[Rfam]
RNA sequence: AGCACUGUGUGGUAUCUGCAGCCAGUUGCUUCAUCAGCUGGUUUGUUCAAAAGCCAGUGCGAGACAAACUCAACGUCUGGCAUCGUUGGUCUCUCGGCUGCCUGUGCUCGGAGUCCUGGUAUUUGUGUUGAGACAAAC
Numbered sequence: 001a002g003c004a005c006u007g008u009g010u011g012g013u014a015u016c017u018g019c020a021g022c023c024a025g026u027u028g029c030u031u032c033a034u035c036a037g038c039u040g041g042u043u044u045g046u047u048c049a050a051a052a053g054c055c056a057g058u059g060c061g062a063g064a065c066a067a068a069c070u071c072a073a074c075g076u077c078u079g080g081c082a083u084c085g086u087u088g089g090u091c092u093c094u095c096g097g098c099u100g101c102c103u104g105u106g107c108u109c110g111g112a113g114u115c116c117u118g119g120u121a122u123u124u125g126u127g128u129u130g131a132g133a134c135a136a137a138c
Stems, first nucleotide, its partner, number of pairs: 002060006015053001017051001018046004023041001024039005064126005070119003079108005
The record is a 138-nucleotide RNA sequence from Collichthys lucidus, which matches "Small nucleolar RNA SNORA8" in Rfam. About the family: ACA8 is a member of the H/ACA class of snoRNA that guide the sites of modification of uridines to pseudouridines. Lineage of the source: Eukaryota > Chordata > Craniata > Teleostei > Collichthys. Its family is annotated with RNA processing and nucleolus in the Gene Ontology. It scores 63 bits against the family's covariance model. Rfam 15.1 lists 1,490 matches to the family in 610 species.